[Rfam]
RNA sequence: UGGUGUUUGAAAUCAAGCUUGGGUUAGACCUGUCAAUUACACAUUGAGGCGACCCAUACUUGGUUUCUGGGACUG
Numbered sequence: 001u002g003g004u005g006u007u008u009g010a011a012a013u014c015a016a017g018c019u020u021g022g023g024u025u026a027g028a029c030c031u032g033u034c035a036a037u038u039a040c041a042c043a044u045u046g047a048g049g050c051g052a053c054c055c056a057u058a059c060u061u062g063g064u065u066u067c068u069g070g071g072a073c074u075g
Stems, first nucleotide, its partner, number of pairs: 002074003006070002009067006016060002021055004029049003

The record is a 75-nucleotide sequence from Eleutherodactylus coqui, which matches "mir-551 microRNA precursor family" in Rfam. Gene Ontology terms of the family: RISC complex and miRNA-mediated post-transcriptional gene silencing. It scores 65 bits against the family's covariance model. NCBI's taxonomy places the organism under Eukaryota, Opisthokonta, Bilateria, Eleutherodactylidae, Eleutherodactylus. Pairs were carried over by alignment from the consensus structure, which was predicted with RNAalifold.